[Rfam]
Bacterial antisense RNA HPnc0260: a 132-nucleotide sequence from Herbaspirillum sp. meg3. Taxonomically the source falls in Herbaspirillum (Bacteria, Pseudomonadota, Burkholderiales, Oxalobacteraceae). The literature on the family includes a 2010 paper in Nature by Sharma et al., "The primary transcriptome of the major human pathogen Helicobacter pylori". The family's consensus secondary structure was predicted with CMfinder.
RNA sequence: AUUAUUUAAUUUUGCUUUUGAUGCUGUUUUUACGAAGCCUCAGUUACAUGAACUUCCUGCUUCGAUACCAAUAUUCAACAACAUCAAGAAUAUUGGUAGGCACGAUUGGACUCGAACCAACGACCCCUACCA
Numbered sequence: 001a002u003u004a005u006u007u008a009a010u011u012u013u014g015c016u017u018u019u020g021a022u023g024c025u026g027u028u029u030u031u032a033c034g035a036a037g038c039c040u041c042a043g044u045u046a047c048a049u050g051a052a053c054u055u056c057c058u059g060c061u062u063c064g065a066u067a068c069c070a071a072u073a074u075u076c077a078a079c080a081a082c083a084u085c086a087a088g089a090a091u092a093u094u095g096g097u098a099g100g101c102a103c104g105a106u107u108g109g110a111c112u113c114g115a116a117c118c119a120a121c122g123a124c125c126c127c128u129a130c131c132a
Stems, first nucleotide, its partner, number of pairs: 018043003024037002027034001094129003099124001103122002106120004